Pyrobaculum sRNA 205: a 62-nucleotide RNA from Pyrobaculum oguniense. Rfam describes the family as follows. Non canonical pseudouridylation guide sRNA features. The organism belongs to Pyrobaculum oguniense, within Archaea. The sequence is in the family's curated seed alignment. It is annotated as an H/ACA-box small nucleolar RNA. The pairing is the family consensus, mapped onto this sequence. On this family, see Bernick et al., RNA 2012: "Discovery of Pyrobaculum small RNA families with atypical pseudouridine guide RNA features".
RNA sequence: AACACCCUGGGCAACACCCCUGUAGGGGGGGCGAAUGAGCCUGGUGGGUUACCCCGGCCAUA
Number, nucleotide and partner (000 for none) at each position: 001a000002a000003c000004a045005c044006c043007c000008u000009g042010g041011g040012c039013a000014a000015c000016a000017c031018c030019c029020c028021u027022g000023u000024a000025g000026g000027g021028g020029g019030g018031g017032c000033g000034a000035a000036u000037g000038a000039g012040c011041c010042u009043g006044g005045u004046g000047g000048g000049u000050u000051a000052c000053c000054c000055c000056g000057g000058c000059c000060a000061u000062a000